[Rfam]
RNA sequence: CCUUCACUGAUGAUCCACCCCAUGACUUUCGUUCUCCUGAGCUUGCUGAAGCAACGCUUUUUGUAUCUGAGGAGG
Number, nucleotide and partner (000 for none) at each position: 001c075002c074003u073004u000005c071006a000007c000008u000009g000010a000011u000012g000013a000014u000015c000016c000017a000018c000019c000020c000021c000022a000023u000024g000025a000026c000027u000028u000029u000030c000031g000032u000033u000034c000035u000036c000037c000038u000039g000040a000041g000042c000043u000044u000045g000046c000047u000048g000049a000050a000051g000052c000053a000054a000055c000056g000057c000058u000059u000060u000061u000062u000063g000064u000065a000066u000067c000068u000069g000070a000071g005072g000073a003074g002075g001
RNA: Small nucleolar RNA SNORD59
Organism: Motacilla alba